[Rfam]
RNA sequence: UCCAGUAGUAGUCAGCCAUCCCAGACACAUUCCUGUGAUGGUGUUACACUGCUGGGAGAGUAAUGUGUGAUCUUCACCUGGUUGCUGCAUCACUGUUUUGGUGGGCUGUGACUCUGGUGUAAGACAGAACUGUGCUUCCUUGAGAGUGUGCUAAGCAUUCAUUUUGACUGCUUAGUUCUAGUGUGGGAGCAGACAAA
Numbered sequence: 001u002c003c004a005g006u007a008g009u010a011g012u013c014a015g016c017c018a019u020c021c022c023a024g025a026c027a028c029a030u031u032c033c034u035g036u037g038a039u040g041g042u043g044u045u046a047c048a049c050u051g052c053u054g055g056g057a058g059a060g061u062a063a064u065g066u067g068u069g070a071u072c073u074u075c076a077c078c079u080g081g082u083u084g085c086u087g088c089a090u091c092a093c094u095g096u097u098u099u100g101g102u103g104g105g106c107u108g109u110g111a112c113u114c115u116g117g118u119g120u121a122a123g124a125c126a127g128a129a130c131u132g133u134g135c136u137u138c139c140u141u142g143a144g145a146g147u148g149u150g151c152u153a154a155g156c157a158u159u160c161a162u163u164u165u166g167a168c169u170g171c172u173u174a175g176u177u178c179u180a181g182u183g184u185g186g187g188a189g190c191a192g193a194c195a196a197a
Stems, first nucleotide, its partner, number of pairs: 001056009011047002015042006021035001024032002065130002068127001071124003075119004080113006087106002091103004133191007148178001150176001152174006
RNA: Small nucleolar RNA SNORA74
Organism: Cricetulus griseus